[Rfam]
RNA sequence: CUUACAGAGUUCAUUGGCAUUCUGUCCACCUCCAUCAGGGCCAAUGUGUUGGAGGCAAUAGAAAUGGAGGUGGGCAACCUGCCAAGGGAGCUCUGUUGG
Numbered sequence: 001c002u003u004a005c006a007g008a009g010u011u012c013a014u015u016g017g018c019a020u021u022c023u024g025u026c027c028a029c030c031u032c033c034a035u036c037a038g039g040g041c042c043a044a045u046g047u048g049u050u051g052g053a054g055g056c057a058a059u060a061g062a063a064a065u066g067g068a069g070g071u072g073g074g075c076a077a078c079c080u081g082c083c084a085a086g087g088g089a090g091c092u093c094u095g096u097u098g099g
Stems, first nucleotide, its partner, number of pairs: 011089001014085006023076013
Dot-bracket structure: ..........(..((((((...(((((((((((((............................)))))))))))))...))))))...)..........
MIR394 microRNA precursor family: a 99-nucleotide RNA sequence from Cocos nucifera. On this family, see Jones-Rhoades and Bartel, Mol Cell 2004: "Computational identification of plant microRNAs and their targets, including a stress-induced miRNA". The family has 19 seed sequences and 724 matches in Rfam 15.1. A search with the family's covariance model found it, with a score of 83 bits.